[Rfam]
Nucleotides: 227
Base pairs, nucleotide, nucleotide: 003225004224005223006221007220008219009218016028017027018026030207031206032196033195034096035095036094037093099172100171101170102169103168104167105166176192177191178190179189180188198210199209200208
Number, partner (000 for none) and nucleotide at each position: 001000c002000a003225u004224c005223g006221c007220u008219u009218c010000a011000g012000g013000g014000c015000g016028g017027g018026g019000u020000g021000u022000a023000a024000u025000u026018c027017c028016c029000c030207a031206c032196c033195g034096g035095u036094g037093g038000u039000c040000a041000u042000u043000c044000a045000a046000u047000g048000u049000u050000c051000a052000u053000c054000u055000g056000c057000a058000u059000c060000a061000u062000g063000c064000a065000c066000u067000u068000u069000c070000a071000u072000g073000c074000u075000g076000c077000a078000c079000a080000a081000a082000c083000a084000a085000u086000g087000a088000u089000c090000a091000g092000c093037c094036c095035a096034c097000g098000a099172g100171c101170g102169a103168c104167c105166u106000a107000a108000g109000c110000a111000c112000u113000g114000u115000u116000c117000a118000a119000a120000u121000g122000a123000u124000g125000c126000g127000u128000a129000u130000a131000u132000g133000u134000g135000g136000u137000a138000c139000a140000u141000g142000c143000a144000c145000u146000a147000a148000u149000g150000a151000u152000u153000u154000g155000c156000a157000c158000a159000g160000a161000c162000a163000c164000g165000a166105a167104g168103g169102u170101u171100g172099c173000a174000g175000a176192u177191u178190u179189g180188g181000u182000g183000a184000a185000a186000c187000u188180c189179c190178a191177a192176a193000g194000c195033c196032g197000a198210c199209g200208g201000u202000u203000a204000a205000a206031g207030u208200c209199c210198g211000g212000a213000u214000g215000a216000a217000a218009g219008a220007a221006g222000a223005c224004g225003a226000c227000g
FMN riboswitch aptamer (RFN element): a 227-nucleotide RNA sequence from Acinetobacter larvae. It scores 93 bits against the family's covariance model. A reference for the family is Serganov et al. (2009), "Coenzyme recognition and gene regulation by a flavin mononucleotide riboswitch", Nature.